[Rfam]
RNA sequence: AGAAUCAAUCGCUAGAAGUAGAGGAAAGUCCGUGCUAUCACGAGCUGUGAUGCUCGUAGUGUUCGUGCUAGGCCCAAUAAGCCUAGGCAACGCAAGUUGACGACGGCGAUGCUCCUAAGUCUUUGAUAUGGAGCUAGCCAUAAAGUGCCACAGAGACUAUGGCUUAGCGAAAGCUAAGAGUGAAAAGUUGGUAAACUCCGCGAGGUAGAAACCCAAAUUUGGUAGGGGAGUCUGAUGGAAGGAACUGAACUGACAUCAGGUAGGAAACUAAGAGAAAUGAUUGGUUGAAAAACAGAACACGGCUUAC
Number, nucleotide and partner (000 for none) at each position: 001a000002g000003a000004a285005u284006c283007a282008a281009u280010c279011g000012c021013u020014a019015g000016a000017a000018g000019u014020a013021g012022a000023g000024g000025a000026a305027a304028g303029u000030c302031c301032g300033u299034g298035c208036u207037a206038u205039c204040a057041c056042g055043a054044g053045c052046u000047g000048u000049g000050a000051u000052g045053c044054u043055c042056g041057u040058a000059g000060u000061g000062u000063u203064c202065g201066u200067g199068c086069u085070a084071g083072g082073c081074c000075c000076a000077a000078u000079a000080a000081g073082c072083c071084u070085a069086g068087g101088c099089a098090a097091c096092g000093c000094a000095a000096g091097u090098u089099g088100a000101c087102g198103a197104c000105g139106g138107c137108g000109a000110u000111g000112c133113u132114c131115c130116u000117a000118a000119g127120u126121c125122u000123u000124u000125g121126a120127u119128a000129u000130g115131g114132a113133g112134c000135u000136a000137g107138c106139c105140a000141u000142a000143a000144a000145g196146u195147g192148c191149c190150a000151c000152a000153g000154a000155g000156a000157c000158u000159a000160u000161g000162g000163c178164u177165u176166a175167g174168c173169g000170a000171a000172a000173g168174c167175u166176a165177a164178g163179a000180g000181u000182g000183a000184a000185a000186a000187g000188u000189u000190g149191g148192u147193a000194a000195a146196c145197u103198c102199c067200g066201c065202g064203a063204g039205g038206u037207a036208g035209a000210a000211a000212c227213c226214c225215a000216a000217a000218u000219u000220u000221g000222g000223u000224a000225g214226g213227g212228g000229a000230g000231u260232c259233u258234g257235a256236u255237g254238g000239a000240a000241g000242g000243a000244a000245c000246u000247g000248a000249a000250c000251u000252g000253a000254c237255a236256u235257c234258a233259g232260g231261u270262a269263g268264g000265a000266a000267a000268c263269u262270a261271a000272g000273a000274g000275a000276a000277a000278u000279g010280a009281u008282u007283g006284g005285u004286u000287g000288a000289a000290a000291a000292a000293c000294a000295g000296a000297a000298c034299a033300c032301g031302g030303c028304u027305u026306a000307c000
The record is a 307-nucleotide RNA from Kandleria vitulina, which matches "Bacterial RNase P class B" in Rfam. From the family's description: Ribonuclease P (RNase P) is a ubiquitous endoribonuclease, found in archaea, bacteria and eukarya as well as chloroplasts and mitochondria. Its best characterised activity is the generation of mature 5'-ends of tRNAs by cleaving the 5'-leader elements of precursor-tRNAs. Cellular RNase Ps are ribonucleoproteins. RNA from bacterial RNase Ps retains its catalytic activity in the absence of the protein subunit, i.e. it is a ribozyme. The literature on the family includes a 1998 paper in Annu Rev Biochem by Frank and Pace, "Ribonuclease P: unity and diversity in a tRNA processing ribozyme". NCBI's taxonomy places the organism under Bacteria, Bacillota, Erysipelotrichia, Kandleria, Kandleria vitulina.